[Rfam]
RNA sequence: AUACGUGUAGGGUGGAGAUGCACAAUCAUCGGACUGCGUAGCUUCAGGCUUUAUUCAAGACGCUUCAUCUCGUCCGCUGUCGAUGAUUGAUUCCUCCUCCUGACAAAGUGCUUUUGUUACGACAGAAGCAGGAGACGUCGUCGCGAACCCGGCCCCGUUGGCCUGGCAUCGCUGGACACUACAGCGGUAAGCCGCUGUUGACGCGCACCUGACACCGACCGCGAGAGUCGUGUGUGCCGAACGCCGUUUCCGGCAGCCCGGAAACCGA
Numbered sequence: 001a002u003a004c005g006u007g008u009a010g011g012g013u014g015g016a017g018a019u020g021c022a023c024a025a026u027c028a029u030c031g032g033a034c035u036g037c038g039u040a041g042c043u044u045c046a047g048g049c050u051u052u053a054u055u056c057a058a059g060a061c062g063c064u065u066c067a068u069c070u071c072g073u074c075c076g077c078u079g080u081c082g083a084u085g086a087u088u089g090a091u092u093c094c095u096c097c098u099c100c101u102g103a104c105a106a107a108g109u110g111c112u113u114u115u116g117u118u119a120c121g122a123c124a125g126a127a128g129c130a131g132g133a134g135a136c137g138u139c140g141u142c143g144c145g146a147a148c149c150c151g152g153c154c155c156c157g158u159u160g161g162c163c164u165g166g167c168a169u170c171g172c173u174g175g176a177c178a179c180u181a182c183a184g185c186g187g188u189a190a191g192c193c194g195c196u197g198u199u200g201a202c203g204c205g206c207a208c209c210u211g212a213c214a215c216c217g218a219c220c221g222c223g224a225g226a227g228u229c230g231u232g233u234g235u236g237c238c239g240a241a242c243g244c245c246g247u248u249u250c251c252g253g254c255a256g257c258c259c260g261g262a263a264a265c266c267g268a
Stems, first nucleotide, its partner, number of pairs: 014097004023089010036077003040050003059074004098133005136203004140177003143172004148166002151163004181198007212235004216230004246265007
Rfam assigns this 268-nucleotide RNA sequence from Pseudomonas kuykendallii to the family "rne-II RNA".
The base pairs follow the family's consensus structure, which is taken from published work.